[Rfam]
RNA sequence: UCUUGCAUCUGGCAGGAGACUUAUGCGGAUAAAACCGCGUAGCCAGGAGAACUGGCAUUGGACUCCUUUAAAGGAGAAAACAAAUG
Dot-bracket structure: ((((((.....))))))....(((((((......)))))))((((.......))))..............................

freshwater-2 RNA: an 86-nucleotide sequence. The family's consensus secondary structure is taken from published work. It is annotated as a cis-regulatory element.